The family of this 70-nucleotide RNA sequence from Gouania willdenowi is "mir-124 microRNA precursor family". Taxonomically the source falls in Gouania (Eukaryota, Eumetazoa, Gnathostomata, Acanthomorphata). It scores 80 bits against the family's covariance model. Rfam links the family to the GO terms RISC complex and miRNA-mediated post-transcriptional gene silencing.
Nucleotides: 070
Base pairs, nucleotide, nucleotide: 003068004067005066009062010061011060012059013058014057015056016055018053019052020051023048024047025046026045027044028043029042030041
Number, partner (000 for none) and nucleotide at each position: 001000g002000u003068c004067u005066c006000c007000u008000c009062g010061u011060g012059u013058u014057c015056a016055c017000a018053g019052c020051g021000g022000a023048c024047c025046u026045u027044g028043a029042u030041u031000u032000a033000a034000a035000u036000c037000a038000a039000a040000c041030a042029a043028u044027u045026a046025a047024g048023g049000c050000a051020c052019g053018c054000g055016g056015u057014g058013a059012a060011u061010g062009c063000c064000a065000a066005g067004a068003g069000u070000u